[Rfam]
RNA sequence: GUGUGGACGAGACCUACCUCAGGGAUGGAGGCGGGGGACCCACCGGUCCACCGAAGUACGGAGACCCGGAAUCGCAUGCGAUUCCUUGGGGUGAAGCCGAAGCCGAAAGGCCGAGGCCGGGCGACCUCUCAAGUCCGAACCCGACAGCUGACCUCGUAGGCGUGGACGAGAGGACCU
Numbered sequence: 001g002u003g004u005g006g007a008c009g010a011g012a013c014c015u016a017c018c019u020c021a022g023g024g025a026u027g028g029a030g031g032c033g034g035g036g037g038a039c040c041c042a043c044c045g046g047u048c049c050a051c052c053g054a055a056g057u058a059c060g061g062a063g064a065c066c067c068g069g070a071a072u073c074g075c076a077u078g079c080g081a082u083u084c085c086u087u088g089g090g091g092u093g094a095a096g097c098c099g100a101a102g103c104c105g106a107a108a109g110g111c112c113g114a115g116g117c118c119g120g121g122c123g124a125c126c127u128c129u130c131a132a133g134u135c136c137g138a139a140c141c142c143g144a145c146a147g148c149u150g151a152c153c154u155c156g157u158a159g160g161c162g163u164g165g166a167c168g169a170g171a172g173g174a175c176c177u
Base pairs, nucleotide, nucleotide: 013160014159018030019029020028031157032156033155034154035153036152041088042087089142090141091140097116098115119136120135121134122133

Shown here is a 177-nucleotide sequence from Mycolicibacterium madagascariense, a member of the family "c-di-AMP riboswitch aptamer (ydaO/yuaA leader)". Its family is annotated with regulation of gene expression and cyclic-di-AMP binding in the Gene Ontology. The pairing is the family consensus, mapped onto this sequence. A search with the family's covariance model found it, with a score of 69 bits. NCBI's taxonomy places the organism under Bacteria, Actinomycetota, Actinomycetes, Mycobacteriales, Mycobacterium (subgen. Mycolicibacterium).